[Rfam]
RNA sequence: UUCUGCGUGAUGAAGAAAAUUGUUCGGAUUCCCACUGAUACUUCAUGAUUAUCACAACCAGCUACUUUUGACAGAC
Numbered sequence: 001u002u003c004u005g006c007g008u009g010a011u012g013a014a015g016a017a018a019a020u021u022g023u024u025c026g027g028a029u030u031c032c033c034a035c036u037g038a039u040a041c042u043u044c045a046u047g048a049u050u051a052u053c054a055c056a057a058c059c060a061g062c063u064a065c066u067u068u069u070g071a072c073a074g075a076c
Base pairs, nucleotide, nucleotide: 002075003074004073005072
RNA: Small nucleolar RNA R12